[Rfam]
RNA sequence: UUUGGGAAAUGAUGCGAACGAUAAGAAUCAUCAGAUCAGAGGCUUUCUGAUUUCAGUUAGCUGUGAUGAAUCACUGCACGUCAGUCUGAUCCCAAA
Numbered sequence: 001u002u003u004g005g006g007a008a009a010u011g012a013u014g015c016g017a018a019c020g021a022u023a024a025g026a027a028u029c030a031u032c033a034g035a036u037c038a039g040a041g042g043c044u045u046u047c048u049g050a051u052u053u054c055a056g057u058u059a060g061c062u063g064u065g066a067u068g069a070a071u072c073a074c075u076g077c078a079c080g081u082c083a084g085u086c087u088g089a090u091c092c093c094a095a096a
Base pairs, nucleotide, nucleotide: 001096002095003094004093005092006091007090
This 96-nucleotide RNA from Dioscorea zingiberensis belongs to the Rfam family "Small nucleolar RNA Z122". The base pairs follow the family's consensus structure, which was predicted with PFOLD. Rfam classes the family as a C/D-box small nucleolar RNA. For this family Rfam cites "The high diversity of snoRNAs in plants: identification and comparative study of 120 snoRNA genes from Oryza sativa" (Chen et al., Nucleic Acids Res, 2003).